[Rfam]
Rfam assigns this 228-nucleotide sequence from Streptomyces apricus to the family "Streptomyces sRNA 4677". Rfam describes the family as follows. Located in the intergenic region between anti-sigma factor SCO4677 gene and a putative regulatory protein gene SCO4676. scr4677 expression requires the SCO4677 activity and scr4677 sRNA itself seem to affect the levels of the SCO4676-associated transcripts. A reference for the family is Hindra et al. (2014), "Complex intra-operonic dynamics mediated by a small RNA in Streptomyces coelicolor", PLoS One. The pairing is the family consensus, mapped onto this sequence. The family has 12 seed sequences and 563 matches in Rfam 15.1.
RNA sequence: CGUACCGGUGGCGCGCGACGCCUUUUAAAUCCCUGAGGGAAAGAACCGACCCCACCAAACCCCUCCGUAGGGGCCCCAGUUGCGGUGCCACUCGUUCGGGUGACGACGGCGUCAGGCGGCCUGGUGGGUGGGGUACGGUCGCCGCAAACAUCCACAAACAAAGUCGGUCCCCGGCGAGACUCCACUCUCGACGAGGACCUGACCACUCAGGAAGAGCUGCCCUCCCUU
Numbered sequence: 001c002g003u004a005c006c007g008g009u010g011g012c013g014c015g016c017g018a019c020g021c022c023u024u025u026u027a028a029a030u031c032c033c034u035g036a037g038g039g040a041a042a043g044a045a046c047c048g049a050c051c052c053c054a055c056c057a058a059a060c061c062c063c064u065c066c067g068u069a070g071g072g073g074c075c076c077c078a079g080u081u082g083c084g085g086u087g088c089c090a091c092u093c094g095u096u097c098g099g100g101u102g103a104c105g106a107c108g109g110c111g112u113c114a115g116g117c118g119g120c121c122u123g124g125u126g127g128g129u130g131g132g133g134u135a136c137g138g139u140c141g142c143c144g145c146a147a148a149c150a151u152c153c154a155c156a157a158a159c160a161a162a163g164u165c166g167g168u169c170c171c172c173g174g175c176g177a178g179a180c181u182c183c184a185c186u187c188u189c190g191a192c193g194a195g196g197a198c199c200u201g202a203c204c205a206c207u208c209a210g211g212a213a214g215a216g217c218u219g220c221c222c223u224c225c226c227u228u
Stems, first nucleotide, its partner, number of pairs: 007207004017074001019072001089102005115143005166199005172193002176189004210226002213223002